Rfam assigns this 114-nucleotide RNA from Salipaludibacillus agaradhaerens to the family "SAM riboswitch aptamer (S box leader)". It scores 84 bits against the family's covariance model. The SAM riboswitch is found upstream of a number of genes which code for proteins involved in methionine or cysteine biosynthesis in Gram-positive bacteria.

RNA sequence: UUCUUAUCCAGAGAGGUGGAGGGACUGGCCCUGCGAAACCUCGGCAGCUACUUGGUAAAUAACUCAGGUCUGUGCCAAUUCCAGCAAACACGUGAUUGUUUGAAAAGAUAAGAA
Numbered sequence: 001u002u003c004u005u006a007u008c009c010a011g012a013g014a015g016g017u018g019g020a021g022g023g024a025c026u027g028g029c030c031c032u033g034c035g036a037a038a039c040c041u042c043g044g045c046a047g048c049u050a051c052u053u054g055g056u057a058a059a060u061a062a063c064u065c066a067g068g069u070c071u072g073u074g075c076c077a078a079u080u081c082c083a084g085c086a087a088a089c090a091c092g093u094g095a096u097u098g099u100u101u102g103a104a105a106a107g108a109u110a111a112g113a114a
Stems, first nucleotide, its partner, number of pairs: 001114008013042005021031003025084004043076004048072001051067002080106001085102006